Rfam assigns this 101-nucleotide RNA sequence from Cohnella pontilimi to the family "Guanidine-I riboswitch aptamer".
RNA sequence: AUGAAGGUUUUCUAGGGUUCCGCGGUAUAGAUGCUGGUCUGGUCCGAGAGAAAACGCACAGCCGGCCGGCUGUGACACGGAAGGAUAAAAGCCUGGGAGAU
Numbered sequence: 001a002u003g004a005a006g007g008u009u010u011u012c013u014a015g016g017g018u019u020c021c022g023c024g025g026u027a028u029a030g031a032u033g034c035u036g037g038u039c040u041g042g043u044c045c046g047a048g049a050g051a052a053a054a055c056g057c058a059c060a061g062c063c064g065g066c067c068g069g070c071u072g073u074g075a076c077a078c079g080g081a082a083g084g085a086u087a088a089a090a091g092c093c094u095g096g097g098a099g100a101u
Base pairs, nucleotide, nucleotide: 007055008054009053010052011051012050015045016044020042021041022039023036024035025034026033027032057074058073059072060071061070062069063068076096078099082094083093084092
The organism belongs to Cohnella, within Bacteria.